The record is an 80-nucleotide RNA from Flavobacterium muglaense, which matches "Flavo-1 RNA" in Rfam. A search with the family's covariance model found it, with a score of 78 bits. Taxonomically the source falls in Flavobacterium (Bacteria, Pseudomonadati, Flavobacteriia, Flavobacteriaceae). The family's RNA type in Rfam is small RNA.
[Rfam]
RNA sequence: UCCUAGCCCCGAUAGCAGUGAAAAUCCUUGUGGGGCUUUCUUUAAGCCCCACAAGAUUGUAACGAAUAGCGGGAAUAGCU
Numbered sequence: 001u002c003c004u005a006g007c008c009c010c011g012a013u014a015g016c017a018g019u020g021a022a023a024a025u026c027c028u029u030g031u032g033g034g035g036c037u038u039u040c041u042u043u044a045a046g047c048c049c050c051a052c053a054a055g056a057u058u059g060u061a062a063c064g065a066a067u068a069g070c071g072g073g074a075a076u077a078g079c080u
Stems, first nucleotide, its partner, number of pairs: 009072003013068002018063002023058004029053010
Dot-bracket structure: ........(((.((...((...((((..((((((((((.....)))))))))).))))...))...)).)))........